Rfam assigns this 80-nucleotide RNA sequence from Strigamia maritima to the family "mir-965 microRNA precursor family".
NCBI's taxonomy places the organism under Eukaryota, Bilateria, Panarthropoda, Arthropoda, Strigamia.
Gene Ontology terms of the family: RISC complex and miRNA-mediated post-transcriptional gene silencing.
Rfam 15.1 lists 224 matches to the family in 178 species.
Nucleotides: 080
Base pairs, nucleotide, nucleotide: 004077005076006075007074010072011071012070014068015067018064019063020062021061022060028055029054030053031052
Number, partner (000 for none) and nucleotide at each position: 001000u002000u003000g004077c005076c006075u007074a008000g009000a010072g011071g012070g013000a014068g015067a016000a017000g018064c019063u020062g021061u022060a023000c024000a025000g026000g027000c028055u029054a030053u031052g032000a033000u034000u035000c036000g037000u038000a039000c040000g041000u042000a043000u044000c045000a046000a047000g048000u049000c050000g051000a052031c053030a054029u055028a056000a057000g058000c059000g060022u061021a062020u063019g064018g065000c066000u067015u068014u069000u070012c071011c072010c073000c074007u075006a076005g077004g078000a079000g080000a